Shown here is a 356-nucleotide sequence from Shewanella putrefaciens, a member of the family "transfer-messenger RNA". Pairs were carried over by alignment from the consensus structure, which is taken from published work. The source organism's lineage runs through Bacteria, Pseudomonadati, Gammaproteobacteria, Alteromonadales and Shewanella putrefaciens. Bacterial tmRNA, also known as 10Sa RNA or SsrA, is named for its dual tRNA and mRNA-like properties. Its role is to liberate the mRNA from a stalled ribosome. The family is grouped with related families in Rfam's "tRNA clan".

RNA sequence: GGGGGCGAUUCUGGAUUCGACAGGAUUCACGAAACCCUGGGAGCAUGCCGAGGGGCGGUUGGCCUCGUAAAAAGCCGCACAGUUAUAGUUGCAAACGACGAUAACUACGCUCUAGCAGCUUAGGCUAGCUAGCCAUCUGACACAGGUCUCUCAAAUGGGCGGUGUAUACAGAUGGUCAUCUUACAUUUGAUAGCGAGGGAACUCCGUCCGGGGGUGAACCGCGAAAUAGUACCGGACUCGCCCGAUGAAAUCCUGUCUUUCGGAGUUUAUUCGGGUUAAUUAAAAGAGAGACUAAGCAUGUAGUGCCUUGGAUGUAGGUGUUCUGGACGCGGGUUCAAGUCCCGCCGCCUCCACCA
Number, nucleotide and partner (000 for none) at each position: 001g352002g351003g350004g349005g348006c347007g346008a000009u000010u000011c000012u000013g000014g000015a000016u000017u000018c000019g000020a000021c325022a324023g323024g322025a321026u320027u000028c318029a000030c000031g000032a000033a000034a313035c000036c311037c310038u000039g308040g307041g306042a000043g000044c300045a299046u298047g297048c296049c067050g066051a065052g064053g063054g000055g078056c077057g076058g075059u074060u073061g000062g000063c053064c052065u051066c050067g049068u000069a000070a000071a000072a000073a060074g059075c058076c057077g056078c055079a000080c000081a000082g000083u000084u000085a000086u000087a000088g000089u000090u000091g000092c000093a000094a000095a000096c000097g000098a000099c000100g000101a000102u000103a000104a000105c000106u000107a000108c000109g000110c000111u000112c132113u131114a130115g129116c128117a126118g125119c124120u000121u000122a000123g000124g119125c118126u117127a000128g116129c115130u114131a113132g112133c175134c174135a173136u172137c171138u170139g000140a165141c164142a163143c162144a000145g000146g160147u000148c159149u000150c000151u190152c189153a188154a187155a186156u185157g000158g000159g148160c146161g000162g143163u142164g141165u140166a000167u000168a000169c000170a138171g137172a136173u135174g134175g133176u000177c000178a000179u000180c000181u000182u000183a000184c000185a156186u155187u154188u153189g152190a151191u000192a000193g222194c221195g220196a000197g000198g000199g000200a000201a000202c000203u000204c000205c000206g237207u236208c235209c234210g233211g000212g000213g000214g000215u000216g000217a000218a000219c000220c195221g194222c193223g000224a000225a000226a000227u000228a000229g000230u000231a000232c000233c210234g209235g208236a207237c206238u000239c000240g276241c275242c274243c273244g272245a271246u000247g000248a268249a267250a000251u264252c263253c262254u000255g292256u291257c290258u289259u288260u287261c286262g253263g252264a251265g000266u000267u249268u248269a000270u000271u245272c244273g243274g242275g241276u240277u000278a000279a000280u000281u000282a000283a000284a000285a000286g261287a260288g259289a258290g257291a256292c255293u000294a000295a000296g048297c047298a046299u045300g044301u000302a000303g000304u000305g000306c041307c040308u039309u000310g037311g036312a000313u034314g000315u000316a000317g000318g028319u000320g026321u025322u024323c023324u022325g021326g000327a000328c000329g345330c344331g343332g342333g341334u000335u000336c000337a000338a000339g000340u000341c333342c332343c331344g330345c329346c007347g006348c005349c004350u003351c002352c001353a000354c000355c000356a000